RNA: Bacterial RNase P class A
RNA sequence: UGAGUCAGCCGGGCGGCCGCGUUGCACGGCGGCGUCGUCGAGCGAAAAGCCUGACGGCGGCGGGUGCGCCGAGGAACGUCCGGGCUCCACAGGGAACGGUGGUGGGUAACGCCCACCCGGGGUGACCCGCGGGAAAGCGCCACAGAAAACAAACCGCCCGCAAGGGUAAGGGUGAAAAGGCGGUGUAAGAGACCACCGCGCUUCCGGUGACGGAAGCGGCACGGCAAGCCCCACCGGGAGCAAGAUCAGACAGCGCGCGUUGACGCUUCCCGCCGAGCGCGCGGGUGGAUUGCUAGAGUCUGCCGGCAACGGUAGGCGUAGAUGGAUGGUCGCCGCCCAGGCUCCUGGAGCUUGGGCACAGAACCCGGCGUAUAGGCUGACUCAUUCG
Number, nucleotide and partner (000 for none) at each position: 001u384002g383003a382004g381005u380006c379007a378008g377009c376010c375011g373012g334013g333014c332015g331016g330017c329018c328019g000020c071021g070022u000023u068024g067025c066026a065027c064028g000029g000030c000031g000032g000033c000034g000035u000036c000037g000038u000039c000040g000041a000042g000043c000044g000045a000046a000047a000048a000049g000050c000051c000052u000053g000054a000055c000056g000057g000058c000059g000060g000061c000062g000063g000064g027065u026066g025067c024068g023069c000070c021071g020072a000073g000074g000075a000076a371077c370078g369079u000080c368081c367082g366083g365084g364085c240086u239087c238088c237089a000090c000091a000092g271093g270094g269095a268096a000097c236098g235099g234100u233101g232102g116103u115104g114105g113106g112107u000108a000109a000110c000111g000112c106113c105114c104115a103116c102117c131118c129119g128120g127121g126122g000123u000124g000125a000126c121127c120128c119129g118130c000131g117132g231133g230134a000135a000136a000137g229138c228139g225140c224141c223142a000143c000144a000145g000146a000147a000148a000149a000150c000151a000152a000153a000154c171155c170156g167157c166158c165159c164160g000161c000162a000163a000164g159165g158166g157167u156168a000169a000170g155171g154172g000173u000174g000175a000176a000177a000178a000179g197180g196181c000182g194183g193184u192185g000186u000187a000188a000189g000190a000191g000192a184193c183194c182195a000196c180197c179198g220199c218200g217201c216202u215203u214204c213205c212206g211207g000208u000209g000210a000211c206212g205213g204214a203215a202216g201217c200218g199219g000220c198221a000222c000223g141224g140225c139226a000227a000228g138229c137230c133231c132232c101233a100234c099235c098236g097237g088238g087239a086240g085241c000242a000243a000244g291245a290246u289247c288248a000249g000250a000251c000252a000253g282254c281255g280256c279257g278258c277259g000260u000261u000262g000263a000264c000265g000266c272267u000268u095269c094270c093271c092272g266273c000274c000275g000276a000277g258278c257279g256280c255281g254282c253283g000284g000285g000286u000287g000288g247289a246290u245291u244292g000293c000294u000295a000296g000297a000298g317299u316300c315301u314302g313303c312304c311305g310306g000307c000308a000309a000310c305311g304312g303313u302314a301315g300316g299317c298318g000319u000320a000321g000322a000323u000324g000325g000326a000327u000328g018329g017330u016331c015332g014333c013334c012335g000336c000337c000338c000339a000340g000341g000342c000343u000344c000345c000346u000347g000348g000349a000350g000351c000352u000353u000354g000355g000356g000357c000358a000359c000360a000361g000362a000363a000364c084365c083366c082367g081368g080369c078370g077371u076372a000373u011374a000375g010376g009377c008378u007379g006380a005381c004382u003383c002384a001385u000386u000387c000388g000